[Rfam]
RNA: Antisense RNA which regulates isiA expression
RNA sequence: CCAGGUAUCAUAUAUGCCCCCAAAAUAAAGGAUCUUAAGUACUAGAAGAAAAGCACCUAAACCUAACAAAAUUAAGUGAAUACCAAAAUGCUACGUAGUCAUUUUAUUUUGAUCUUUCCA
Numbered sequence: 001c002c003a004g005g006u007a008u009c010a011u012a013u014a015u016g017c018c019c020c021c022a023a024a025a026u027a028a029a030g031g032a033u034c035u036u037a038a039g040u041a042c043u044a045g046a047a048g049a050a051a052a053g054c055a056c057c058u059a060a061a062c063c064u065a066a067c068a069a070a071a072u073u074a075a076g077u078g079a080a081u082a083c084c085a086a087a088a089u090g091c092u093a094c095g096u097a098g099u100c101a102u103u104u105u106a107u108u109u110u111g112a113u114c115u116u117u118c119c120a
Base pairs, nucleotide, nucleotide: 075117076116078114079113083111085109086108087107
Dot-bracket structure: ..........................................................................((.((...(.(((...................))).).)).))...